Makes More Granules Regulator RNA (mmgR): a 77-nucleotide sequence from Novosphingobium sp. Fuku2-ISO-50. The source organism's lineage runs through Bacteria, Pseudomonadati, Alphaproteobacteria, Sphingomonadales and Novosphingobium. SuhB later renamed mmgR (makes more granules regulator) was a putative non-coding RNA found multiple times in the Agrobacterium tumefaciens genome and related alpha-proteobacteria. The base pairs follow the family's consensus structure. The family's RNA type in Rfam is small RNA. The match comes from Rfam's covariance-model search (48 bits).
RNA sequence: GGAGCAUGCCUUUCAGGCAUCCUCUCCCAAACUUUUCAGGCCGGCCGGGCAACUGGCCGGCCAUUUUUUUGCACGCG
Numbered sequence: 001g002g003a004g005c006a007u008g009c010c011u012u013u014c015a016g017g018c019a020u021c022c023u024c025u026c027c028c029a030a031a032c033u034u035u036u037c038a039g040g041c042c043g044g045c046c047g048g049g050c051a052a053c054u055g056g057c058c059g060g061c062c063a064u065u066u067u068u069u070u071g072c073a074c075g076c077g
Stems, first nucleotide, its partner, number of pairs: 008018004039062009